Record summary
A member of the RNA family "Alphaproteobacteria transfer-messenger RNA" from Maritimibacter harenae, 352 nucleotides long. The family's RNA type in Rfam is non-coding RNA gene. Its Rfam clan is "tRNA clan". Rfam links the family to the GO term RNA catabolic process. The source organism's lineage runs through Bacteria, Pseudomonadota, Rhodobacterales, Roseobacteraceae and Maritimibacter. The base pairs follow the family's consensus structure, which is taken from published work. Rfam's curators write: Bacterial tmRNA, also known as 10Sa RNA or SsrA, is named for its dual tRNA and mRNA-like properties.

[Rfam]
RNA sequence: CCCCUUCUCAAACCGGUGACGCCGCCCUAUAUCUCGGGUGUCCCGCAAGGGACUAUGGACAUAAACGCGCUCGUAAUAAGCGGAUCGGACCCGGGGGCGGUACCCGGCGGCUCCACCAAAUAUCCCAUCGUUGGGGGAUCAAGGGGCCGAAACAGGAUCGACGAACGUCUAAAGGGGUUAGCUUUGUCCCGGUGAGAUACCACCGUUAUCGGUUCACUAUGCAUAAUUGCCAACGACAAUCGUGCUCCGGUUGCUCUUGCCGCCUAAGCGGUAAGAAAGACCGAAAUUUAAGCCCAGUCGUCUAGCAACGGCUGGCGGGGUUCGCAGGCACCUGGCAACAGAAGCCUGCAUU
Numbered sequence: 001c002c003c004c005u006u007c008u009c010a011a012a013c014c015g016g017u018g019a020c021g022c023c024g025c026c027c028u029a030u031a032u033c034u035c036g037g038g039u040g041u042c043c044c045g046c047a048a049g050g051g052a053c054u055a056u057g058g059a060c061a062u063a064a065a066c067g068c069g070c071u072c073g074u075a076a077u078a079a080g081c082g083g084a085u086c087g088g089a090c091c092c093g094g095g096g097g098c099g100g101u102a103c104c105c106g107g108c109g110g111c112u113c114c115a116c117c118a119a120a121u122a123u124c125c126c127a128u129c130g131u132u133g134g135g136g137g138a139u140c141a142a143g144g145g146g147c148c149g150a151a152a153c154a155g156g157a158u159c160g161a162c163g164a165a166c167g168u169c170u171a172a173a174g175g176g177g178u179u180a181g182c183u184u185u186g187u188c189c190c191g192g193u194g195a196g197a198u199a200c201c202a203c204c205g206u207u208a209u210c211g212g213u214u215c216a217c218u219a220u221g222c223a224u225a226a227u228u229g230c231c232a233a234c235g236a237c238a239a240u241c242g243u244g245c246u247c248c249g250g251u252u253g254c255u256c257u258u259g260c261c262g263c264c265u266a267a268g269c270g271g272u273a274a275g276a277a278a279g280a281c282c283g284a285a286a287u288u289u290a291a292g293c294c295c296a297g298u299c300g301u302c303u304a305g306c307a308a309c310g311g312c313u314g315g316c317g318g319g320g321u322u323c324g325c326a327g328g329c330a331c332c333u334g335g336c337a338a339c340a341g342a343a344g345c346c347u348g349c350a351u352u
Stems, first nucleotide, its partner, number of pairs: 040053005057189005067182002069178004081167002085164003091107005108149007190205004196215002199213003318333004324349006